[Rfam]
RNA: mir-3473 microRNA precursor family
RNA sequence: ACCACUGAGCCAUCUCUCCAGCCCCUUUGUUGUUUUCAAUACAUAAAAUAAGCAAAUAGGACUGGAGAGAUGGCUCAGCGGU
Numbered sequence: 001a002c003c004a005c006u007g008a009g010c011c012a013u014c015u016c017u018c019c020a021g022c023c024c025c026u027u028u029g030u031u032g033u034u035u036u037c038a039a040u041a042c043a044u045a046a047a048a049u050a051a052g053c054a055a056a057u058a059g060g061a062c063u064g065g066a067g068a069g070a071u072g073g074c075u076c077a078g079c080g081g082u
Base pairs, nucleotide, nucleotide: 002081003080005078006077007076008075009074010073011072012071013070014069015068016067017066018065019064020063021062023060024059